[Rfam]
RNA sequence: AUGUACGUUAUUUCUUGAUCAAGGCCUUCAUUAAGACCUGAAGUACAAUUUUUGGAGACCCUGUCCUUCAGUGGGCAGGGUG
Numbered sequence: 001a002u003g004u005a006c007g008u009u010a011u012u013u014c015u016u017g018a019u020c021a022a023g024g025c026c027u028u029c030a031u032u033a034a035g036a037c038c039u040g041a042a043g044u045a046c047a048a049u050u051u052u053u054g055g056a057g058a059c060c061c062u063g064u065c066c067u068u069c070a071g072u073g074g075g076c077a078g079g080g081u082g
Stems, first nucleotide, its partner, number of pairs: 022039003026035003058081009

SmY spliceosomal RNA: an 82-nucleotide sequence from Caenorhabditis latens. The literature on the family includes a 2007 paper in RNA by MacMorris et al., "A novel family of C. elegans snRNPs contains proteins associated with trans-splicing". The source organism's lineage runs through Eukaryota, Opisthokonta, Metazoa, Bilateria and Caenorhabditis.